[Rfam]
RNA sequence: UAAUUCCUUUGGGGCAGGGUGUAAAUCCCGACCGACGGUGAUAGAUAGACGAAUAUCUUCAGUCCGUGACCCGGAGCACAUAGGUGUGAAGGUGGAUUUGGUGAAAAUCCAAAGCCGACAGUGAAAGUCUGGAGGGGAAAAGGAAUAA
Numbered sequence: 001u002a003a004u005u006c007c008u009u010u011g012g013g014g015c016a017g018g019g020u021g022u023a024a025a026u027c028c029c030g031a032c033c034g035a036c037g038g039u040g041a042u043a044g045a046u047a048g049a050c051g052a053a054u055a056u057c058u059u060c061a062g063u064c065c066g067u068g069a070c071c072c073g074g075a076g077c078a079c080a081u082a083g084g085u086g087u088g089a090a091g092g093u094g095g096a097u098u099u100g101g102u103g104a105a106a107a108u109c110c111a112a113a114g115c116c117g118a119c120a121g122u123g124a125a126a127g128u129c130u131g132g133a134g135g136g137g138a139a140a141a142g143g144a145a146u147a148a
Stems, first nucleotide, its partner, number of pairs: 003146008017029003031128002033117002035067004062115002071092002097113005119131003

The family of this 148-nucleotide RNA sequence from Paraliobacillus sp. PM-2 is "FMN riboswitch aptamer (RFN element)".
The match comes from Rfam's covariance-model search (108 bits).
The family's consensus secondary structure is taken from published work.
The literature on the family includes a 2002 paper in Proc Natl Acad Sci U S A by Winkler et al., "An mRNA structure that controls gene expression by binding FMN".
Gene Ontology term of the family: FMN binding.
The organism belongs to Paraliobacillus, within Bacteria.